Record summary
Shown here is a 227-nucleotide RNA sequence from Miscanthus lutarioriparius, a member of the family "MIR6217 microRNA precursor family".
[Rfam]
RNA sequence: UGGCCAUAGAAUAACUUAUUCUGUGGCCACUUUGACUUACGAUAGUUACUAUACUAUUUUACGAGACUACAAUAACUCCUUACUAAGUGAUUUACUAUAACAUUAUGAUAAAUAUCACCAUAAGUUGUAGUAACACGAGUAUCGUAAAUGCAUAUUUAUGUUAUCGUAAAUAGGUAUAGACAUUAUCGUAAAUCAAGGUGACUAUAGAAUAAGCUAUUGUAUGGCCA
Numbered sequence: 001u002g003g004c005c006a007u008a009g010a011a012u013a014a015c016u017u018a019u020u021c022u023g024u025g026g027c028c029a030c031u032u033u034g035a036c037u038u039a040c041g042a043u044a045g046u047u048a049c050u051a052u053a054c055u056a057u058u059u060u061a062c063g064a065g066a067c068u069a070c071a072a073u074a075a076c077u078c079c080u081u082a083c084u085a086a087g088u089g090a091u092u093u094a095c096u097a098u099a100a101c102a103u104u105a106u107g108a109u110a111a112a113u114a115u116c117a118c119c120a121u122a123a124g125u126u127g128u129a130g131u132a133a134c135a136c137g138a139g140u141a142u143c144g145u146a147a148a149u150g151c152a153u154a155u156u157u158a159u160g161u162u163a164u165c166g167u168a169a170a171u172a173g174g175u176a177u178a179g180a181c182a183u184u185a186u187c188g189u190a191a192a193u194c195a196a197g198g199u200g201a202c203u204a205u206a207g208a209a210u211a212a213g214c215u216a217u218u219g220u221a222u223g224g225c226c227a
Stems, first nucleotide, its partner, number of pairs: 001227008010218004015213012028200006037191010050178006058170005065165002069161003072157001074155001080147004087142003091138002093132009103122001
Description: Its family is annotated with RISC complex and miRNA-mediated post-transcriptional gene silencing in the Gene Ontology.